[Rfam]
RNA sequence: CAAUCCAGACAGUGAUGCCCGGAUGAACUGUAAGAAGUCAGCAGAUGCCAUAGUAGUCCAUCAGGACGAAGGGC
Number, nucleotide and partner (000 for none) at each position: 001c025002a024003a000004u023005c022006c021007a000008g019009a000010c017011a016012g000013u000014g000015a000016u011017g010018c000019c008020c000021g006022g005023a004024u002025g001026a000027a000028c000029u000030g000031u000032a000033a000034g000035a000036a000037g046038u045039c044040a000041g000042c000043a000044g039045a038046u037047g074048c073049c072050a000051u000052a000053g000054u000055a000056g067057u066058c065059c064060a000061u000062c000063a000064g059065g058066a057067c056068g000069a000070a000071g000072g049073g048074c047